RNA sequence: GGGCACACGGUGGAUGCCUUGGCACCAAGAGCCGAUGAAGGACGUAGGAGCCUGCGAUAAGCCCCGGGGAGUUGGCAACCGAGCUGUGAUCCGGGGGUGUCCGAAUGGGGAAACCCAGCUGGAGUCAUGUCCAGUUACCCUCACCUGAACACAUAGGGUGAGUGGAGGGAACGUGGGGAAGUGAAACAUCUCAGUACCCACAGGAAGAGAAAACAACAGUGAUUCCGAGAGUAGUGGCGAGCGAAAUCGGAAGAGGCCAAACCAUGGCUGUGUGAUACCCGGCAGGGGUUGCAGUCAUGGGGUUGUGGGGCCGCUCGAUCACGUCUGCCGGCGUGGUACAGAGUAAGAAAACACACGCGAAGCCGAAGCAGGUUGGAAAGCCUGGCCGUAGAGGGUGAUAGCCCCGUACGUGUAAGUGUGUGUCUCUGGAGCGUCACCCCAAGUAACACGGAACCCCUGAAAUUCCGUGUGAAUCUGGCGGGACCACCCGUUAAGCCUAAAUACUCCUUGGUGACCGAUAGCGGACAAGUACCGUGAGGGAAAGGUGAAAAGUACCCCUGGCGGGGAGUGAAAUAGUACCUGAAACCGUGUGCCUACAAU
Numbered sequence: 001g002g003g004c005a006c007a008c009g010g011u012g013g014a015u016g017c018c019u020u021g022g023c024a025c026c027a028a029g030a031g032c033c034g035a036u037g038a039a040g041g042a043c044g045u046a047g048g049a050g051c052c053u054g055c056g057a058u059a060a061g062c063c064c065c066g067g068g069g070a071g072u073u074g075g076c077a078a079c080c081g082a083g084c085u086g087u088g089a090u091c092c093g094g095g096g097g098u099g100u101c102c103g104a105a106u107g108g109g110g111a112a113a114c115c116c117a118g119c120u121g122g123a124g125u126c127a128u129g130u131c132c133a134g135u136u137a138c139c140c141u142c143a144c145c146u147g148a149a150c151a152c153a154u155a156g157g158g159u160g161a162g163u164g165g166a167g168g169g170a171a172c173g174u175g176g177g178g179a180a181g182u183g184a185a186a187c188a189u190c191u192c193a194g195u196a197c198c199c200a201c202a203g204g205a206a207g208a209g210a211a212a213a214c215a216a217c218a219g220u221g222a223u224u225c226c227g228a229g230a231g232u233a234g235u236g237g238c239g240a241g242c243g244a245a246a247u248c249g250g251a252a253g254a255g256g257c258c259a260a261a262c263c264a265u266g267g268c269u270g271u272g273u274g275a276u277a278c279c280c281g282g283c284a285g286g287g288g289u290u291g292c293a294g295u296c297a298u299g300g301g302g303u304u305g306u307g308g309g310g311c312c313g314c315u316c317g318a319u320c321a322c323g324u325c326u327g328c329c330g331g332c333g334u335g336g337u338a339c340a341g342a343g344u345a346a347g348a349a350a351a352c353a354c355a356c357g358c359g360a361a362g363c364c365g366a367a368g369c370a371g372g373u374u375g376g377a378a379a380g381c382c383u384g385g386c387c388g389u390a391g392a393g394g395g396u397g398a399u400a401g402c403c404c405c406g407u408a409c410g411u412g413u414a415a416g417u418g419u420g421u422g423u424c425u426c427u428g429g430a431g432c433g434u435c436a437c438c439c440c441a442a443g444u445a446a447c448a449c450g451g452a453a454c455c456c457c458u459g460a461a462a463u464u465c466c467g468u469g470u471g472a473a474u475c476u477g478g479c480g481g482g483a484c485c486a487c488c489c490g491u492u493a494a495g496c497c498u499a500a501a502u503a504c505u506c507c508u509u510g511g512u513g514a515c516c517g518a519u520a521g522c523g524g525a526c527a528a529g530u531a532c533c534g535u536g537a538g539g540g541a542a543a544g545g546u547g548a549a550a551a552g553u554a555c556c557c558c559u560g561g562c563g564g565g566g567a568g569u570g571a572a573a574u575a576g577u578a579c580c581u582g583a584a585a586c587c588g589u590g591u592g593c594c595u596a597c598a599a600u
Stems, first nucleotide, its partner, number of pairs: 001595010016580001017545002021516002023513007030505002032168002040102003043056003062096007071084003107116003117136007138165002140162007172203001173201005183190002213220002223501001224251005234242002254498004262300011307440003312433004347427001349425001351423008361411001364410002369384005387391001393405003446470008477492005532539002555566004
The record is a 600-nucleotide part of an RNA from Nocardioides jishulii, which matches "Bacterial large subunit ribosomal RNA" in Rfam. It scores 2789 bits against the family's covariance model. The source organism's lineage runs through Bacteria, Bacillati, Propionibacteriales, Nocardioidaceae and Nocardioides.